A member of the RNA family "tRNA" from Aspergillus nidulans, 71 nucleotides long. The source organism's lineage runs through Eukaryota, Opisthokonta, Pezizomycotina, Eurotiales and Aspergillus subgen. Nidulantes. The base pairs follow the family's consensus structure, which is taken from published work. It is one of the family's seed sequences. Rfam's curators write: Transfer RNA (tRNA) molecules are approximately 80 nucleotides in length. Rfam classes the family as a transfer RNA. Rfam links the family to the GO term triplet codon-amino acid adaptor activity.
RNA sequence: GCCCGGUUAGCAUAAAAGUAAUGUAUCCGUUUUGUAAUCGGAAUAAACAAGUGCGAUACUUGUACUGGGCU
Dot-bracket structure: (((((((..((((.......)))).((((.........))))....(((((.......)))))))))))).
Numbered sequence: 001g002c003c004c005g006g007u008u009a010g011c012a013u014a015a016a017a018g019u020a021a022u023g024u025a026u027c028c029g030u031u032u033u034g035u036a037a038u039c040g041g042a043a044u045a046a047a048c049a050a051g052u053g054c055g056a057u058a059c060u061u062g063u064a065c066u067g068g069g070c071u
Stems, first nucleotide, its partner, number of pairs: 001070007010024004026042004047063005